[Rfam]
RNA sequence: CCGUCACGCUCACCGAGAUCGUCUUCUCAACCUUCACUGGCAGGCGGCACGACAGAGGGCUCCCGCAAGGACAUGACUUGCGGGAGCCCUUC
Number, nucleotide and partner (000 for none) at each position: 001c047002c046003g045004u000005c044006a000007c000008g041009c040010u039011c000012a000013c000014c000015g037016a000017g035018a034019u000020c000021g031022u030023c000024u000025u000026c000027u000028c000029a000030a022031c021032c000033u000034u018035c017036a000037c015038u000039g010040g009041c008042a000043g000044g005045c003046g002047g001048c000049a000050c000051g000052a000053c000054a000055g091056a090057g089058g088059g087060c086061u085062c084063c083064c082065g081066c080067a079068a078069g077070g000071a000072c000073a000074u000075g000076a000077c069078u068079u067080g066081c065082g064083g063084g062085a061086g060087c059088c058089c057090u056091u055092c000
This 92-nucleotide RNA sequence from Streptomyces phaeofaciens belongs to the Rfam family "sodF sRNA". A reference for the family is Kim et al. (2014), "Inverse regulation of Fe- and Ni-containing SOD genes by a Fur family regulator Nur through small RNA processed from 3'UTR of the sodF mRNA", Nucleic Acids Res. The family has 6 seed sequences and 336 matches in Rfam 15.1.